[Rfam]
RNA sequence: AAGCAGACCUGUUCUAUCGCUGUCCCGAUGUAUCGGGAGAGAGGAAAGUCCGGGCAACAUAGAGCAACACGCUUCCUAACGGGAAGGUCCCGAUUAACUUUGUUGAGCUUGCUCCGCUCGGUUUGUCGGGAACAGAAAGUGCCACAGAAAAUAUACCGUCCCGAUUCAUCGGGAUAAGGGUGAAAACGUGAGGUAAGAGCUCACGGUCUUGUAUGGUGACAUACAUUACGGUAAACCUCGUGUGUUGAAAGACCAAAUAGGUCGCAGAAUGAAGGCUGCUCGUCUUCUCUCGAUUUUGUCGGGAUCUGCGAUGGGUAGGUUGAUGGAUCCCGUGAGUGAUUGCGGGACUAGAUAAAUGAUAGAAAGCCUCUCGUUGGAGGAUACAGAACCCGGCUUAUAGGGUUUGCUUCUUU
Number, nucleotide and partner (000 for none) at each position: 001a409002a408003g407004c406005a405006g404007a403008c402009c401010u400011g398012u364013u363014c362015u361016a360017u359018c358019g000020c041021u040022g000023u038024c037025c036026c035027g034028a033029u000030g000031u000032a000033u028034c027035g026036g025037g024038a023039g000040a021041g020042a000043g000044g000045a000046a396047a395048g394049u000050c393051c392052g391053g390054g389055c247056a246057a245058c244059a000060u000061a000062g000063a000064g299065c298066a000067a243068c242069a241070c240071g239072c086073u085074u084075c083076c082077u000078a000079a000080c000081g000082g076083g075084a074085a073086g072087g133088u131089c130090c129091c128092g127093a126094u125095u000096a000097a000098c000099u000100u000101u000102g000103u000104u000105g000106a000107g000108c000109u000110u000111g000112c000113u000114c000115c000116g000117c000118u000119c000120g000121g000122u000123u000124u000125g094126u093127c092128g091129g090130g089131a088132a000133c087134a238135g237136a000137a000138a000139g236140u235141g232142c231143c230144a000145c000146a000147g000148a000149a000150a000151a000152u000153a000154u000155a000156c179157c178158g175159u174160c173161c172162c171163g170164a169165u000166u000167c000168a000169u164170c163171g162172g161173g160174a159175u158176a000177a000178g157179g156180g000181u000182g000183a000184a000185a000186a000187c205188g204189u203190g202191a201192g200193g000194u000195a000196a000197g000198a000199g000200c192201u191202c190203a189204c188205g187206g000207u000208c000209u000210u225211g224212u223213a222214u221215g220216g000217u000218g000219a000220c215221a214222u213223a212224c211225a210226u000227u000228a000229c000230g143231g142232u141233a000234a000235a140236c139237c135238u134239c071240g070241u069242g068243u067244g058245u057246u056247g055248a000249a000250a000251g321252a320253c319254c318255a000256a000257a000258u000259a000260g000261g312262u311263c310264g309265c308266a307267g000268a000269a000270u000271g000272a000273a000274g000275g000276c000277u000278g000279c000280u000281c000282g000283u000284c000285u000286u000287c000288u000289c000290u000291c000292g000293a305294u304295u303296u302297u000298g065299u064300c000301g000302g296303g295304a294305u293306c000307u266308g265309c264310g263311a262312u261313g000314g000315g000316u000317a000318g254319g253320u252321u251322g000323a000324u000325g000326g000327a000328u347329c346330c345331c344332g343333u342334g341335a340336g000337u000338g000339a000340u335341u334342g333343c332344g331345g330346g329347a328348c000349u000350a000351g000352a000353u000354a000355a000356a000357u000358g018359a017360u016361a015362g014363a013364a012365a000366g000367c000368c000369u000370c000371u000372c000373g000374u000375u000376g000377g000378a000379g000380g000381a000382u000383a000384c000385a000386g000387a000388a000389c054390c053391c052392g051393g050394c048395u047396u046397a000398u011399a000400g010401g009402g008403u007404u006405u005406g004407c003408u002409u001410c000411u000412u000413u000